Rfam assigns this 105-nucleotide RNA from Rickettsia endosymbiont of Culicoides newsteadi to the family "TPP riboswitch aptamer (THI element)". The base pairs follow the family's consensus structure, which is taken from published work. From the family's description: Vitamin B(1) in its active form thiamin pyrophosphate (TPP) is an essential coenzyme that is synthesised by coupling of pyrimidine and thiazole moieties in bacteria.
[Rfam]
RNA sequence: UACUCACAUUAGGGGUGCCAUAGGAGACUAAGGCUGAGAGUUAAUAAACAACCCUUUGAACCUGAUAUUGUUAAUACAAACGGAGGGAAAUGUGUACAGUAUUGA
Numbered sequence: 001u002a003c004u005c006a007c008a009u010u011a012g013g014g015g016u017g018c019c020a021u022a023g024g025a026g027a028c029u030a031a032g033g034c035u036g037a038g039a040g041u042u043a044a045u046a047a048a049c050a051a052c053c054c055u056u057u058g059a060a061c062c063u064g065a066u067a068u069u070g071u072u073a074a075u076a077c078a079a080a081c082g083g084a085g086g087g088a089a090a091u092g093u094g095u096a097c098a099g100u101a102u103u104g105a
Stems, first nucleotide, its partner, number of pairs: 006093005011055004017034003021030001041048002061086003068079003